Shown here is an 87-nucleotide RNA from Scleropages formosus, a member of the family "mir-22 microRNA precursor family". The base pairs follow the family's consensus structure, which was predicted with RNAalifold. The match comes from Rfam's covariance-model search (78 bits).

RNA sequence: AGUUGCUCCACAGUCGUUCUUCAUUGGCUAGCUUUAUGGCUCAGCCCUUGGAGUAAAGCUGCCAGUUGAAGAGCUGUUGUGGGUGAC
Numbered sequence: 001a002g003u004u005g006c007u008c009c010a011c012a013g014u015c016g017u018u019c020u021u022c023a024u025u026g027g028c029u030a031g032c033u034u035u036a037u038g039g040c041u042c043a044g045c046c047c048u049u050g051g052a053g054u055a056a057a058g059c060u061g062c063c064a065g066u067u068g069a070a071g072a073g074c075u076g077u078u079g080u081g082g083g084u085g086a087c
Base pairs, nucleotide, nucleotide: 005084006083007082010080011079012078017073018072019071020070021069022068026063027062028061030060031059032058033057034056035055036054